[Rfam]
Bacterial large signal recognition particle RNA: a 262-nucleotide sequence from Anaerocolumna sedimenticola. The organism belongs to Anaerocolumna, within Bacteria. Rfam describes the family as follows. The signal recognition particle (SRP) is a universally conserved ribonucleoprotein involved in the co-translational targeting of proteins to membranes.
RNA sequence: CCGUGCAGCCGGGGAGAUAGCGGUGCCCUGUACCUGCAAUCCGCUACAGCAGGGGUGAUGCCUUGCCUAGGGUGCUUUUUUGUAGGGCUGCCCCCUAUAAGUGAUGUUGACGUCUGGGUCUUACGCAACAGGAAUUCGUGAACCGUGUCAGGUCAGGAAUGGAGCAGCACUAAGCGAAAGCUCUUGUGUGCCGUAAGGCAGCCUGGGCCGAGUUAACUGUAGGGGUAACGCCUAUGAAGAGCAUUCGAAGCAAGACGCACGG
Numbered sequence: 001c002c003g004u005g006c007a008g009c010c011g012g013g014g015a016g017a018u019a020g021c022g023g024u025g026c027c028c029u030g031u032a033c034c035u036g037c038a039a040u041c042c043g044c045u046a047c048a049g050c051a052g053g054g055g056u057g058a059u060g061c062c063u064u065g066c067c068u069a070g071g072g073u074g075c076u077u078u079u080u081u082g083u084a085g086g087g088c089u090g091c092c093c094c095c096u097a098u099a100a101g102u103g104a105u106g107u108u109g110a111c112g113u114c115u116g117g118g119u120c121u122u123a124c125g126c127a128a129c130a131g132g133a134a135u136u137c138g139u140g141a142a143c144c145g146u147g148u149c150a151g152g153u154c155a156g157g158a159a160u161g162g163a164g165c166a167g168c169a170c171u172a173a174g175c176g177a178a179a180g181c182u183c184u185u186g187u188g189u190g191c192c193g194u195a196a197g198g199c200a201g202c203c204u205g206g207g208c209c210g211a212g213u214u215a216a217c218u219g220u221a222g223g224g225g226u227a228a229c230g231c232c233u234a235u236g237a238a239g240a241g242c243a244u245u246c247g248a249a250g251c252a253a254g255a256c257g258c259a260c261g262g
Stems, first nucleotide, its partner, number of pairs: 001262006008056003011029004016024001018022001033053005062254005068248001070246006077240010089227002093224006101217002103214003112208008120197006126188002129186005135178005145170004153162003